The family of this 98-nucleotide RNA sequence from Tetraodon nigroviridis is "Vault RNA".
Rfam's curators put it in the seed alignment.
Lineage of the source: Eukaryota > Craniata > Actinopteri > Acanthomorphata > Tetraodon.
About the family: This family of RNAs are found as part of the enigmatic vault ribonucleoprotein complex.
The family's RNA type in Rfam is non-coding RNA gene.
[Rfam]
RNA sequence: GCGCUGGUUUAGCUCAGUGGUUACUUCACCACAAAUCCUUUGGAUUUCGCGGUCUCCUCCCAACUGGGAUCCAACCACGGGCGCUGCUCAGCGUUUUU
Numbered sequence: 001g002c003g004c005u006g007g008u009u010u011a012g013c014u015c016a017g018u019g020g021u022u023a024c025u026u027c028a029c030c031a032c033a034a035a036u037c038c039u040u041u042g043g044a045u046u047u048c049g050c051g052g053u054c055u056c057c058u059c060c061c062a063a064c065u066g067g068g069a070u071c072c073a074a075c076c077a078c079g080g081g082c083g084c085u086g087c088u089c090a091g092c093g094u095u096u097u098u
Stems, first nucleotide, its partner, number of pairs: 002093006012082004017078004025074002